[Rfam]
RNA sequence: GGUUCCGGUCCGUUUUGCAGGGUCAGCAUUCAGUCUUGUUCAUGUUCUGCUGUGCAAACCCAUGCAAAACUGAUCGUAGCU
Numbered sequence: 001g002g003u004u005c006c007g008g009u010c011c012g013u014u015u016u017g018c019a020g021g022g023u024c025a026g027c028a029u030u031c032a033g034u035c036u037u038g039u040u041c042a043u044g045u046u047c048u049g050c051u052g053u054g055c056a057a058a059c060c061c062a063u064g065c066a067a068a069a070c071u072g073a074u075c076g077u078a079g080c081u
Stems, first nucleotide, its partner, number of pairs: 003079002006076005012070008020061002023057001026055004032051003
RNA: mir-19 microRNA precursor family